Rfam assigns this 114-nucleotide sequence from Metabacillus indicus to the family "PyrR binding site". The base pairs follow the family's consensus structure, which is taken from published work. This family represents the PyrR binding site and terminator structure. This RNA structure is found upstream of a variety of genes involved in pyrimidine biosynthesis and transport. The alignment also includes a portion of the antiterminator structure. The literature on the family includes a 2001 paper in Nucleic Acids Res by Bonner et al., "Molecular recognition of pyr mRNA by the Bacillus subtilis attenuation regulatory protein PyrR". Rfam classes the family as a cis-regulatory element. The organism belongs to Metabacillus, within Bacteria.
RNA sequence: AACCCUUUUAAUGAAGUCCAGAGAGGCUGCAAAAGGAACGUAAAAUCACACCUGUGAUUCUUUUUGACAGGAUGAUUAUGCCUCUUUGCAGCCUCAUGCAAAGAGGUUUUUUUA
Numbered sequence: 001a002a003c004c005c006u007u008u009u010a011a012u013g014a015a016g017u018c019c020a021g022a023g024a025g026g027c028u029g030c031a032a033a034a035g036g037a038a039c040g041u042a043a044a045a046u047c048a049c050a051c052c053u054g055u056g057a058u059u060c061u062u063u064u065u066g067a068c069a070g071g072a073u074g075a076u077u078a079u080g081c082c083u084c085u086u087u088g089c090a091g092c093c094u095c096a097u098g099c100a101a102a103g104a105g106g107u108u109u110u111u112u113u114a
Stems, first nucleotide, its partner, number of pairs: 004036006013030001015028004044077005051070001055066003078109001080107011